Source information
This 67-nucleotide RNA from Pipistrellus kuhlii belongs to the Rfam family "mir-9256 microRNA precursor family". The family has 8 seed sequences and 31,772 matches in Rfam 15.1. A search with the family's covariance model found it, with a score of 80 bits. Gene Ontology terms of the family: miRNA-mediated post-transcriptional gene silencing and RISC complex. The source organism's lineage runs through Eukaryota, Metazoa, Gnathostomata, Yangochiroptera and Pipistrellus.
RNA sequence: CUAUACACUGAGUGGCCAGAUUAUUAUAAUCUCUAAAUACAUAAUAAUCUGGCCACUCAGUGUAUAG
Numbered sequence: 001c002u003a004u005a006c007a008c009u010g011a012g013u014g015g016c017c018a019g020a021u022u023a024u025u026a027u028a029a030u031c032u033c034u035a036a037a038u039a040c041a042u043a044a045u046a047a048u049c050u051g052g053c054c055a056c057u058c059a060g061u062g063u064a065u066a067g
Stems, first nucleotide, its partner, number of pairs: 004064014019049009